RNA sequence: CUGAUUAAGUGGUUCUCAACAGUUCAACAGUUCUAUGAGAAAAUUGUGAAAUGUUUAGGACCACUUGACCAGUC
Numbered sequence: 001c002u003g004a005u006u007a008a009g010u011g012g013u014u015c016u017c018a019a020c021a022g023u024u025c026a027a028c029a030g031u032u033c034u035a036u037g038a039g040a041a042a043a044u045u046g047u048g049a050a051a052u053g054u055u056u057a058g059g060a061c062c063a064c065u066u067g068a069c070c071a072g073u074c
Stems, first nucleotide, its partner, number of pairs: 008065006015058002018055004023050004
A member of the RNA family "mir-203 microRNA precursor family" from Takifugu rubripes, 74 nucleotides long. Rfam's curators put it in the seed alignment. Pairs were carried over by alignment from the consensus structure, which was predicted with RNAalifold.